RNA sequence: AACAAAAGAUGACAAUGUUUCGGUCCCAUAUGAUCACCUGAUUACCUUAUUGAGAUCAGCUGAUGUU
Numbered sequence: 001a002a003c004a005a006a007a008g009a010u011g012a013c014a015a016u017g018u019u020u021c022g023g024u025c026c027c028a029u030a031u032g033a034u035c036a037c038c039u040g041a042u043u044a045c046c047u048u049a050u051u052g053a054g055a056u057c058a059g060c061u062g063a064u065g066u067u
Stems, first nucleotide, its partner, number of pairs: 001067004

Small nucleolar RNA SNORD73: a 67-nucleotide sequence from Neolamprologus brichardi. By type it is a C/D-box small nucleolar RNA. The family's consensus secondary structure was predicted with PFOLD. The organism belongs to Neolamprologus, within Eukaryota.